[Rfam]
A member of the RNA family "Eukaryotic large subunit ribosomal RNA" from Coemansia brasiliensis, 597 nucleotides of a longer RNA. Clan: LSU clan. The source organism's lineage runs through Eukaryota, Kickxellomycota, Kickxellomycetes, Kickxellaceae and Coemansia.
RNA sequence: CGGGGAAAGAAGACCCUAUUGAGCUUGACUCUAGUCAGACUUUGUGGAGUGACAUGGGGGGUGUAGAAUAAGUGGGAGGGCCCCUGGCCCGCCGGUGAAAUACCACUACCUCCAUCGUUGCUCUACUUAUCUGGUUGCAAGGGAGCCCUUCGGGGACUUUGAGACUUAACGGGCCCUUUGCGGGCCCGGACCCUGGUCAGAGACAUUGUCUGAUGGGGAGUUUGGCUGGGGCGGCACAUCUGUUAAACAAUAACGCAGGUGUCCAAAGGGGGGCUCAACGAGAACAGAAAUCUCGUGUAGAUCAAAAGGGCAAAUGCUCCCUUGACUGGGACCUUCAGUGUGGGUACCAGCCGUGAAAGCGUGGCCUAUCGAUCCUUUAUGCUCGCGGUGCAUGCGACUAUAGGUGCCAGAAAAGUUACCAUAGGGAUAACUGGCUUGUGGCAGCCAAGCGUUCAUAGCGACGUUGCUUUUUGAUCCUUCGAUGUCGGCUCUUCCUAUCAUACUGAAGCAGAAUUCAGUAAGCGUUGGAUUGUUCACCCACUAAUAGGGAACGUGAGCUGGGUUUAGACCGUCGUGAGACAGGUUAGUUUUACCCUA
Numbered sequence: 001c002g003g004g005g006a007a008a009g010a011a012g013a014c015c016c017u018a019u020u021g022a023g024c025u026u027g028a029c030u031c032u033a034g035u036c037a038g039a040c041u042u043u044g045u046g047g048a049g050u051g052a053c054a055u056g057g058g059g060g061g062u063g064u065a066g067a068a069u070a071a072g073u074g075g076g077a078g079g080g081c082c083c084c085u086g087g088c089c090c091g092c093c094g095g096u097g098a099a100a101u102a103c104c105a106c107u108a109c110c111u112c113c114a115u116c117g118u119u120g121c122u123c124u125a126c127u128u129a130u131c132u133g134g135u136u137g138c139a140a141g142g143g144a145g146c147c148c149u150u151c152g153g154g155g156a157c158u159u160u161g162a163g164a165c166u167u168a169a170c171g172g173g174c175c176c177u178u179u180g181c182g183g184g185c186c187c188g189g190a191c192c193c194u195g196g197u198c199a200g201a202g203a204c205a206u207u208g209u210c211u212g213a214u215g216g217g218g219a220g221u222u223u224g225g226c227u228g229g230g231g232c233g234g235c236a237c238a239u240c241u242g243u244u245a246a247a248c249a250a251u252a253a254c255g256c257a258g259g260u261g262u263c264c265a266a267a268g269g270g271g272g273g274c275u276c277a278a279c280g281a282g283a284a285c286a287g288a289a290a291u292c293u294c295g296u297g298u299a300g301a302u303c304a305a306a307a308g309g310g311c312a313a314a315u316g317c318u319c320c321c322u323u324g325a326c327u328g329g330g331a332c333c334u335u336c337a338g339u340g341u342g343g344g345u346a347c348c349a350g351c352c353g354u355g356a357a358a359g360c361g362u363g364g365c366c367u368a369u370c371g372a373u374c375c376u377u378u379a380u381g382c383u384c385g386c387g388g389u390g391c392a393u394g395c396g397a398c399u400a401u402a403g404g405u406g407c408c409a410g411a412a413a414a415g416u417u418a419c420c421a422u423a424g425g426g427a428u429a430a431c432u433g434g435c436u437u438g439u440g441g442c443a444g445c446c447a448a449g450c451g452u453u454c455a456u457a458g459c460g461a462c463g464u465u466g467c468u469u470u471u472u473g474a475u476c477c478u479u480c481g482a483u484g485u486c487g488g489c490u491c492u493u494c495c496u497a498u499c500a501u502a503c504u505g506a507a508g509c510a511g512a513a514u515u516c517a518g519u520a521a522g523c524g525u526u527g528g529a530u531u532g533u534u535c536a537c538c539c540a541c542u543a544a545u546a547g548g549g550a551a552c553g554u555g556a557g558c559u560g561g562g563u564u565u566a567g568a569c570c571g572u573c574g575u576g577a578g579a580c581a582g583g584u585u586a587g588u589u590u591u592a593c594c595c596u597a
Base pairs, nucleotide, nucleotide: 003596004595005594007591008590015425016424017423018422020421021420022417023416024415025414026413028221029220030219031218035213036212037211038210039209040208044126045125046124047123048122049121050120051119052118053117054115055114056113057112058111059110060109071107072106073105074104075103078090079089130201131200132199133198134197140194141193142192143191148153170188171187172186173185174184224237225235226234227233238260239259240258241257242256243255263364264363269321270320271319272318273317274316275301276300278296279295280294281293282292283291303310326350327349328348329347331345332344333343334342352361353360354359375403376402378400379399383397384396385395386394434475436473438472440468441467442466443465444464445463449459450458486561487559488558489557490556491553492550493549494548495547496546499524502519503518504517505516506515507514526540527539528538530536567585568584569583570582571580572579573578